[Rfam]
RNA sequence: GGCGAUAAAUUGUGUCGUGCAAUAGAUGCAGCGGACCCGGGGGCGGUACCCGGCGGCUCCACCAUAAACCCUUGGCGACAGGGGCUUUUGACGGGGCCGAACUAGGAUCGACGUGUAUUGAAAGACGAUGUUUUUGCCCGGCCUGAAUGAGCCGUUAAACCGUUCAAAACCACAAGUGCCAACGAUAACGAAGCACUCGCUCUCGCAGCGUAA
Numbered sequence: 001g002g003c004g005a006u007a008a009a010u011u012g013u014g015u016c017g018u019g020c021a022a023u024a025g026a027u028g029c030a031g032c033g034g035a036c037c038c039g040g041g042g043g044c045g046g047u048a049c050c051c052g053g054c055g056g057c058u059c060c061a062c063c064a065u066a067a068a069c070c071c072u073u074g075g076c077g078a079c080a081g082g083g084g085c086u087u088u089u090g091a092c093g094g095g096g097c098c099g100a101a102c103u104a105g106g107a108u109c110g111a112c113g114u115g116u117a118u119u120g121a122a123a124g125a126c127g128a129u130g131u132u133u134u135u136g137c138c139c140g141g142c143c144u145g146a147a148u149g150a151g152c153c154g155u156u157a158a159a160c161c162g163u164u165c166a167a168a169a170c171c172a173c174a175a176g177u178g179c180c181a182a183c184g185a186u187a188a189c190g191a192a193g194c195a196c197u198c199g200c201u202c203u204c205g206c207a208g209c210g211u212a213a
Base pairs, nucleotide, nucleotide: 001138002137003136004135005134015128016127017126018125027117028116029115031114032113033112037053038052039051040050041049054099055098056097057096058095059094060093139154140153141152142151
Dot-bracket structure: (((((.........((((........(((.(((...(((((.......)))))(((((((................................)))))))............)))))).......)))).....)))))((((........))))...........................................................
Shown here is a 213-nucleotide RNA sequence from Sphingomonas cavernae, a member of the family "permuted transfer-messenger RNA". For this family Rfam cites "Phylogenetic analysis of tmRNA secondary structure" (Williams and Bartel, RNA, 1996). By type it is a non-coding RNA gene.